Notes: The record is an 89-nucleotide sequence from Prolemur simus, which matches "Y RNA" in Rfam.
RNA sequence: GGUUGGUGCUAGUGCAGUGGUGUUUACAACUAAUUGAUGACAACCUUUGUUCCUUCUCCACUCCCACCACUUCACUUGAUCAGCCUUAA
Numbered sequence: 001g002g003u004u005g006g007u008g009c010u011a012g013u014g015c016a017g018u019g020g021u022g023u024u025u026a027c028a029a030c031u032a033a034u035u036g037a038u039g040a041c042a043a044c045c046u047u048u049g050u051u052c053c054u055u056c057u058c059c060a061c062u063c064c065c066a067c068c069a070c071u072u073c074a075c076u077u078g079a080u081c082a083g084c085c086u087u088a089a
Stems, first nucleotide, its partner, number of pairs: 001085007011076001014073001017067004022063001028051003032047002